The record is a 96-nucleotide RNA sequence from Tenebrionibacter intestinalis, which matches "Tryptophan operon leader" in Rfam. Pairs were carried over by alignment from the consensus structure, which is taken from published work. From the family's description: At least 6 amino acid operons are known to be regulated by attenuation. In each a leader sequence of 150-200 bp is found upstream of the first gene in the operon. Gene Ontology terms of the family: transcriptional attenuation by ribosome and tryptophan biosynthetic process.
[Rfam]
RNA sequence: AACCUCUGGCGGCGCGUUUUCUGAACAGGGCAGCGUGCCUGCAUAGUAGCGUUUUCAAUGCAGAUACCCGGCCCGCCGUUACGCGGGCUUUUUUAU
Dot-bracket structure: ........((((.(((((.(((.....))).)))))..))))...........................(((((((......))))))).......